The record is a 106-nucleotide sequence from Flavobacterium noncentrifugens, which matches "6S-Flavo RNA" in Rfam. The family's consensus secondary structure is taken from published work. It scores 98 bits against the family's covariance model. It is annotated as a small RNA.
[Rfam]
RNA sequence: ACUCAACACUAACAUUUUAGAAUGAGCAAAUCAUCGCUACUAAAGCAAGCUGCCCUGAGCAGAUCCUUGAACAGCGAGUUAGCUCAAAACUUGUCUUUUCGAGUUU
Numbered sequence: 001a002c003u004c005a006a007c008a009c010u011a012a013c014a015u016u017u018u019a020g021a022a023u024g025a026g027c028a029a030a031u032c033a034u035c036g037c038u039a040c041u042a043a044a045g046c047a048a049g050c051u052g053c054c055c056u057g058a059g060c061a062g063a064u065c066c067u068u069g070a071a072c073a074g075c076g077a078g079u080u081a082g083c084u085c086a087a088a089a090c091u092u093g094u095c096u097u098u099u100c101g102a103g104u105u106u
Stems, first nucleotide, its partner, number of pairs: 023086005034077005043068003050062004